[Rfam]
Notes: Mammalian CPEB3 ribozyme: a 77-nucleotide sequence from Alligator sinensis.
RNA sequence: UGUCAAGAGUUGAAGGCCAUAGUAGAAGUGCUGAUGGCAAGGCCCUGGCAGAUUCCAGUGAAUCUGCAAAUUCUGCU
Number, nucleotide and partner (000 for none) at each position: 001u000002g000003u000004c000005a000006a000007g000008a000009g000010u000011u000012g000013a000014a000015g044016g043017c042018c041019a000020u000021a077022g076023u075024a074025g073026a072027a071028g000029u039030g038031c000032u000033g000034a000035u000036g000037g000038c030039a029040a000041g018042g017043c016044c015045c000046u000047g000048g000049c066050a065051g064052a063053u062054u061055c060056c000057a000058g000059u000060g055061a054062a053063u052064c051065u050066g049067c000068a000069a000070a000071u027072u026073c025074u024075g023076c022077u021